[Rfam]
The record is a 170-nucleotide sequence from Exobacillus caeni, which matches "glmS glucosamine-6-phosphate activated ribozyme aptamer" in Rfam. Gene Ontology terms of the family: catalytic activity and regulation of gene expression. For this family Rfam cites "Evidence for preorganization of the glmS ribozyme ligand binding pocket" (Hampel and Tinsley, Biochemistry, 2006). Rfam's curators write: This entry contains a glucosamine-6-phosphate activated ribozyme that is found in the mRNA for GlmS. GlmS is an enzyme that uses fructose-6-phosphate and glutamine to generate glucosamine-6-phosphate. The ribozyme catalyses self cleavage of the glmS mRNA that is thought to regulate GlmS activity.
RNA sequence: AAUUAAUUAUAAGCGCCUGAACUAUUUCCAUGGACGACAAGGAAAUAGUUGACGAGGAAGAGGUUCAUCGAUCAAUCGGCGGAUGCCUCUCGGUUGCUUCAUCACAACCGUACGACUUUGUAAAAAACAGUGAGGUGACUCUCUGUACAAAAUCAAAGUCAUGAUGAGCG
Numbered sequence: 001a002a003u004u005a006a007u008u009a010u011a012a013g014c015g016c017c018u019g020a021a022c023u024a025u026u027u028c029c030a031u032g033g034a035c036g037a038c039a040a041g042g043a044a045a046u047a048g049u050u051g052a053c054g055a056g057g058a059a060g061a062g063g064u065u066c067a068u069c070g071a072u073c074a075a076u077c078g079g080c081g082g083a084u085g086c087c088u089c090u091c092g093g094u095u096g097c098u099u100c101a102u103c104a105c106a107a108c109c110g111u112a113c114g115a116c117u118u119u120g121u122a123a124a125a126a127a128c129a130g131u132g133a134g135g136u137g138a139c140u141c142u143c144u145g146u147a148c149a150a151a152a153u154c155a156a157a158g159u160c161a162u163g164a165u166g167a168g169c170g
Stems, first nucleotide, its partner, number of pairs: 020050008029041001059090005068079004091110006114160007128145003132141003